[Rfam]
RNA sequence: CCACUCUGAAAAGCGAUCCGGCGACUCUGCGGAUCCGCCGACGGUGAAAGCCCCGCCUCCGUGCACGGGUGAAGCUCUCAGGCCCAUGACAGAGGGGGA
Numbered sequence: 001c002c003a004c005u006c007u008g009a010a011a012a013g014c015g016a017u018c019c020g021g022c023g024a025c026u027c028u029g030c031g032g033a034u035c036c037g038c039c040g041a042c043g044g045u046g047a048a049a050g051c052c053c054c055g056c057c058u059c060c061g062u063g064c065a066c067g068g069g070u071g072a073a074g075c076u077c078u079c080a081g082g083c084c085c086a087u088g089a090c091a092g093a094g095g096g097g098g099a
Base pairs, nucleotide, nucleotide: 001097002096004094005093006092007091008090015035016034017033018032019031020030037083038082039081040079041078044077046075050070051069052068053067

Background
The family of this 99-nucleotide RNA from Microbacterium maritypicum is "Glycine riboswitch aptamer". A search with the family's covariance model found it, with a score of 41 bits.